[Rfam]
A member of the RNA family "Small nucleolar SNORD12/SNORD106" from Pogona vitticeps, 97 nucleotides long. On this family, see Huttenhofer et al., EMBO J 2001: "RNomics: an experimental approach that identifies 201 candidates for novel, small, non-messenger RNAs in mouse". By type it is a C/D-box small nucleolar RNA. The family has 8 seed sequences and 2,264 matches in Rfam 15.1. Clan: SNORD12 clan.

RNA sequence: ACGGGUGCACGUGAUGACGUUCCUUCUUUUUUCCCCAUCAGAGCGGACGUGGUGAUCUCUUUUUGCUGUUCAGCCAGAAAUGGUCUGAUGCACCAGG
Number, nucleotide and partner (000 for none) at each position: 001a000002c096003g000004g094005g093006u092007g091008c090009a089010c000011g000012u000013g000014a000015u000016g000017a000018c000019g000020u000021u000022c000023c000024u000025u000026c000027u000028u000029u000030u000031u000032u000033c000034c000035c000036c000037a000038u000039c000040a000041g000042a000043g000044c000045g000046g000047a000048c000049g000050u000051g000052g000053u000054g000055a000056u000057c000058u000059c000060u000061u000062u000063u000064u000065g000066c000067u000068g000069u000070u000071c000072a000073g000074c000075c000076a000077g000078a000079a000080a000081u000082g000083g000084u000085c000086u000087g000088a000089u009090g008091c007092a006093c005094c004095a000096g002097g000